[Rfam]
RNA sequence: AUUUCUUAAAUAGAGCAGGCGAUACACUUCGAUAAAGUGUGUGGGGCUGGGCCAGCGCAAGAGCUGGCAGCAGGAUAAAAUACCUGUGGGACUAUA
Numbered sequence: 001a002u003u004u005c006u007u008a009a010a011u012a013g014a015g016c017a018g019g020c021g022a023u024a025c026a027c028u029u030c031g032a033u034a035a036a037g038u039g040u041g042u043g044g045g046g047c048u049g050g051g052c053c054a055g056c057g058c059a060a061g062a063g064c065u066g067g068c069a070g071c072a073g074g075a076u077a078a079a080a081u082a083c084c085u086g087u088g089g090g091a092c093u094a095u096a
Base pairs, nucleotide, nucleotide: 010095011094012093013092016090018048019047020046022042023041024040025039026038027037051068052067053066054065055064070087071086072085073084074083
The family of this 96-nucleotide RNA sequence from Desulfosporosinus acididurans is "NiCo (Nickel/Cobalt) riboswitch aptamer". A reference for the family is Furukawa et al. (2015), "Bacterial riboswitches cooperatively bind Ni(2+) or Co(2+) ions and control expression of heavy metal transporters", Mol Cell. The family is grouped with related families in Rfam's "NiCo_riboswitches". The base pairs follow the family's consensus structure, which is taken from published work.